[Rfam]
RNA sequence: GGCCAGGGGGGAAGAAAAAAUAUCAGUUAAAACAUAUAGUAUGGGCAAGCAGGGAGCUAGACCGAUUCGCACUUAAUCCUGGUC
Numbered sequence: 001g002g003c004c005a006g007g008g009g010g011g012a013a014g015a016a017a018a019a020a021u022a023u024c025a026g027u028u029a030a031a032a033c034a035u036a037u038a039g040u041a042u043g044g045g046c047a048a049g050c051a052g053g054g055a056g057c058u059a060g061a062c063c064g065a066u067u068c069g070c071a072c073u074u075a076a077u078c079c080u081g082g083u084c
Base pairs, nucleotide, nucleotide: 001084002083003082004081005080006079007078008077
The family of this 84-nucleotide RNA from Lentivirus humimdef1 is "HIV gag stem loop 3 (GSL3)". The source organism's lineage runs through Viruses, Riboviria, Artverviricota, Ortervirales and Lentivirus humimdef1. The family's consensus secondary structure was predicted with PFOLD. On this family, see Damgaard et al., J Mol Biol 2004: "RNA interactions in the 5' region of the HIV-1 genome". From the family's description: This family consists of several HIV gag stem loop 3 (GSL3) sequences. Rfam's curators put it in the seed alignment.